[Rfam]
RNA sequence: GAGCUGUACGGGCGUUAUGUCGCUGUGGCCCGGUACCAGACCCCAAAGGAGAACGAUGUCAGGGGUCUGGGCAGCUA
Numbered sequence: 001g002a003g004c005u006g007u008a009c010g011g012g013c014g015u016u017a018u019g020u021c022g023c024u025g026u027g028g029c030c031c032g033g034u035a036c037c038a039g040a041c042c043c044c045a046a047a048g049g050a051g052a053a054c055g056a057u058g059u060c061a062g063g064g065g066u067c068u069g070g071g072c073a074g075c076u077a
Stems, first nucleotide, its partner, number of pairs: 002076005009032004037069008